[Rfam]
Rfam assigns this 103-nucleotide RNA from Peptoniphilus duerdenii to the family "Glycine riboswitch aptamer".

RNA sequence: AAGAACUCAAUGGGAAAUUUUCGAUUGUGAAAAACCGAAGGUACAAGUAUUGGAGCGGCCGCUGCAAUAUGAAUUUCUCAGGUAACAAGACUGUUGAGUUAUG
Numbered sequence: 001a002a003g004a005a006c007u008c009a010a011u012g013g014g015a016a017a018u019u020u021u022c023g024a025u026u027g028u029g030a031a032a033a034a035c036c037g038a039a040g041g042u043a044c045a046a047g048u049a050u051u052g053g054a055g056c057g058g059c060c061g062c063u064g065c066a067a068u069a070u071g072a073a074u075u076u077c078u079c080a081g082g083u084a085a086c087a088a089g090a091c092u093g094u095u096g097a098g099u100u101a102u103g
Base pairs, nucleotide, nucleotide: 006098007097008096009095010094011093012092013091019032020031021030022029034083035082036081037079038078041077043075047070048069049068050067051066052065
The organism belongs to Peptoniphilus duerdenii, within Bacteria. It scores 48 bits against the family's covariance model.